About this RNA: The family of this 73-nucleotide sequence from Rugosibacter aromaticivorans is "tRNA". The family's RNA type in Rfam is transfer RNA. Gene Ontology term of the family: triplet codon-amino acid adaptor activity.
[Rfam]
RNA sequence: GUCCCUAUCGUCUAGAGGCCUAGGACAUCACCCUUUCACGGUGAGUACGGGGGUUCGAAUCCCCCUGGGGACG
Dot-bracket structure: (((((((..((((.........)))).(((((.......)))))....(((((.......)))))))))))).